[Rfam]
RNA sequence: AUGGAUCUUCGGGGUAAGGUGAAAUUCCUGACCGGCGGUGAUUGUUAUCUGCGGAUAACACGAGCCCGCGACUCUCCAGUCUAUCUAACGAUGAGAUUGGCGACUGAUCUGGUGAAAUUCCAGAGCCGACGGUAAAGUCCGGAUGGGAGAAGAUCAAA
Numbered sequence: 001a002u003g004g005a006u007c008u009u010c011g012g013g014g015u016a017a018g019g020u021g022a023a024a025u026u027c028c029u030g031a032c033c034g035g036c037g038g039u040g041a042u043u044g045u046u047a048u049c050u051g052c053g054g055a056u057a058a059c060a061c062g063a064g065c066c067c068g069c070g071a072c073u074c075u076c077c078a079g080u081c082u083a084u085c086u087a088a089c090g091a092u093g094a095g096a097u098u099g100g101c102g103a104c105u106g107a108u109c110u111g112g113u114g115a116a117a118u119u120c121c122a123g124a125g126c127c128g129a130c131g132g133u134a135a136a137g138u139c140c141g142g143a144u145g146g147g148a149g150a151a152g153a154u155c156a157a158a
Stems, first nucleotide, its partner, number of pairs: 004155007017029003031138002033128002035069004064126002073103002108124005130141003

FMN riboswitch aptamer (RFN element): a 158-nucleotide sequence from Paenibacillus apis. About the family: The RFN element is a highly conserved domain that is found frequently in the 5'-untranslated regions of prokaryotic mRNAs that encode for flavin mononucleotide (FMN) biosynthesis and transport proteins. The source organism's lineage runs through Bacteria, Bacillota, Bacilli, Caryophanales and Paenibacillus. It scores 116 bits against the family's covariance model. The family's consensus secondary structure is taken from published work.